RNA: UnaL2 LINE 3' element
Nucleotides: 054
Base pairs, nucleotide, nucleotide: 013043014041015040016039020036021035022034023033024032025031
Number, partner (000 for none) and nucleotide at each position: 001000g002000g003000u004000u005000a006000a007000a008000u009000u010000u011000a012000u013043u014041g015040u016039a017000a018000g019000u020036c021035g022034c023033u024032u025031u026000g027000g028000a029000u030000a031025a032024a033023a034022g035021u036020g037000u038000c039016u040015g041014c042000u043013a044000a045000a046000u047000g048000a049000c050000a051000u052000g053000u054000a